[Rfam]
RNA sequence: GUGGGUUAUGGUGAUAUGCGACCCGUAACACUCUGGGGUAAACUCAUCGGUUCCCUCUGUGCCAUUGCGGGGGUUCUAACCAUUGCCUUACCUGUACCUGUGAUUGUUUCCAAC
Numbered sequence: 001g002u003g004g005g006u007u008a009u010g011g012u013g014a015u016a017u018g019c020g021a022c023c024c025g026u027a028a029c030a031c032u033c034u035g036g037g038g039u040a041a042a043c044u045c046a047u048c049g050g051u052u053c054c055c056u057c058u059g060u061g062c063c064a065u066u067g068c069g070g071g072g073g074u075u076c077u078a079a080c081c082a083u084u085g086c087c088u089u090a091c092c093u094g095u096a097c098c099u100g101u102g103a104u105u106g107u108u109u110c111c112a113a114c
Stems, first nucleotide, its partner, number of pairs: 001114002004111002008107004014101003018097001020095001037077002040074001049063003
A member of the RNA family "Potassium channel RNA editing signal" from Clonorchis sinensis, 114 nucleotides long. A search with the family's covariance model found it, with a score of 96 bits. The source organism's lineage runs through Eukaryota, Metazoa, Bilateria, Opisthorchiidae and Clonorchis.